[Rfam]
RNA sequence: CCUGCGACCAGGCCUAAUCUCCAAAGAAAAGGGAGAGCGGAGGACCCACUAGUUGUUUUGGGGUGAGUCUCGACGUGAUGAGGUGAUGUCGAGUAGGGCAACUCUUUGAGCCCGAACCCGUCAGCUAACUUCGUCGGCCUUCAAGGAGAGGAGUG
Numbered sequence: 001c002c003u004g005c006g007a008c009c010a011g012g013c014c015u016a017a018u019c020u021c022c023a024a025a026g027a028a029a030a031g032g033g034a035g036a037g038c039g040g041a042g043g044a045c046c047c048a049c050u051a052g053u054u055g056u057u058u059u060g061g062g063g064u065g066a067g068u069c070u071c072g073a074c075g076u077g078a079u080g081a082g083g084u085g086a087u088g089u090c091g092a093g094u095a096g097g098g099c100a101a102c103u104c105u106u107u108g109a110g111c112c113c114g115a116a117c118c119c120g121u122c123a124g125c126u127a128a129c130u131u132c133g134u135c136g137g138c139c140u141u142c143a144a145g146g147a148g149a150g151g152a153g154u155g
Stems, first nucleotide, its partner, number of pairs: 011139004018036005037134006047060002061119003069093008096113004
The record is a 155-nucleotide RNA from bacterium HR30, which matches "c-di-AMP riboswitch aptamer (ydaO/yuaA leader)" in Rfam. Gene Ontology terms of the family: cyclic-di-AMP binding and regulation of gene expression.